Rfam assigns this 66-nucleotide RNA sequence from Trypanosoma conorhini to the family "Trypanosomatid snoRNA TB8Cs4H2". The family's RNA type in Rfam is H/ACA-box small nucleolar RNA. The family's consensus secondary structure was predicted with WAR.

RNA sequence: GCACGAGGGCCAUCGUCGGACGCCCCGUAUUCUCGUGGGGCUGCGCCGAAACAACACCUUCGCAGA
Numbered sequence: 001g002c003a004c005g006a007g008g009g010c011c012a013u014c015g016u017c018g019g020a021c022g023c024c025c026c027g028u029a030u031u032c033u034c035g036u037g038g039g040g041c042u043g044c045g046c047c048g049a050a051a052c053a054a055c056a057c058c059u060u061c062g063c064a065g066a
Base pairs, nucleotide, nucleotide: 004062005061006060007059008058009057016049017048018047019046022042023040024039025038026037
The organism belongs to Trypanosoma, within Eukaryota. It scores 67 bits against the family's covariance model.